[Rfam]
Shown here is a 74-nucleotide RNA sequence from Myotis davidii, a member of the family "Small nucleolar RNA SNORD113/SNORD114 family".
From the family's description: The imprinted human domain at 14q32 contains two clusters of tandemly repeated small nucleolar RNAs named 14q(I) and 14q(II) snoRNAs.
The literature on the family includes a 2002 paper in Hum Mol Genet by Cavaille et al., "Identification of tandemly-repeated C/D snoRNA genes at the imprinted human 14q32 domain reminiscent of those at the Prader-Willi/Angelman syndrome region".
The family's RNA type in Rfam is C/D-box small nucleolar RNA.
Taxonomically the source falls in Myotis (Eukaryota, Metazoa, Eutheria, Chiroptera).

RNA sequence: UGGAUCAAUGAUGAUGACUGGUCACAUGGAGUCAUAUAUGGUGAGUGUCAGGUGUCUGUAACUCUUGUGUUCAC
Numbered sequence: 001u002g003g004a005u006c007a008a009u010g011a012u013g014a015u016g017a018c019u020g021g022u023c024a025c026a027u028g029g030a031g032u033c034a035u036a037u038a039u040g041g042u043g044a045g046u047g048u049c050a051g052g053u054g055u056c057u058g059u060a061a062c063u064c065u066u067g068u069g070u071u072c073a074c
Stems, first nucleotide, its partner, number of pairs: 002072004